RNA sequence: CCGCGCCCGCCAUUUGAGAGCUACGGCUUUCAGGUCUGUGCGAAUUGAAUCUGGUCGUGCCGCUGACCUCUGGGUCACCGCCAUGCGCAUCAGGGAUACCGACGGUCUAAAGCGUCCGCGCAGGUCCCGCGCAGUUUCCUUGCUGAUCGGCUCUGCCUUCGGCUUGGCGACGUAGAUAGCACGAUAGGUCG
Numbered sequence: 001c002c003g004c005g006c007c008c009g010c011c012a013u014u015u016g017a018g019a020g021c022u023a024c025g026g027c028u029u030u031c032a033g034g035u036c037u038g039u040g041c042g043a044a045u046u047g048a049a050u051c052u053g054g055u056c057g058u059g060c061c062g063c064u065g066a067c068c069u070c071u072g073g074g075u076c077a078c079c080g081c082c083a084u085g086c087g088c089a090u091c092a093g094g095g096a097u098a099c100c101g102a103c104g105g106u107c108u109a110a111a112g113c114g115u116c117c118g119c120g121c122a123g124g125u126c127c128c129g130c131g132c133a134g135u136u137u138c139c140u141u142g143c144u145g146a147u148c149g150g151c152u153c154u155g156c157c158u159u160c161g162g163c164u165u166g167g168c169g170a171c172g173u174a175g176a177u178a179g180c181a182c183g184a185u186a187g188g189u190c191g
Stems, first nucleotide, its partner, number of pairs: 004042003012035010055184006061080002064077005084133005093128004099124002103118003135170002138167002142163005149158002
Shown here is a 191-nucleotide RNA sequence from Pseudomonas veronii, a member of the family "RT-15 RNA".